[Rfam]
RNA sequence: GGCCUCCCUCUUUGGGGUGAUUGAUCAUGGAGCUCCGCCAUCAAUUGCCCCAAAGAGGUAGGCC
Number, nucleotide and partner (000 for none) at each position: 001g064002g063003c062004c061005u060006c000007c058008c057009u056010c055011u054012u053013u052014g051015g050016g049017g048018u047019g046020a045021u044022u043023g042024a041025u040026c000027a000028u037029g036030g035031a000032g000033c000034u000035c030036c029037g028038c000039c000040a025041u024042c023043a022044a021045u020046u019047g018048c017049c016050c015051c014052a013053a012054a011055g010056a009057g008058g007059u000060a005061g004062g003063c002064c001

This 64-nucleotide sequence from Myotis davidii belongs to the Rfam family "mir-9242 microRNA precursor family". The family's consensus secondary structure was predicted with RNAalifold. A search with the family's covariance model found it, with a score of 66 bits. Lineage of the source: Eukaryota > Deuterostomia > Sarcopterygii > Eutheria > Myotis.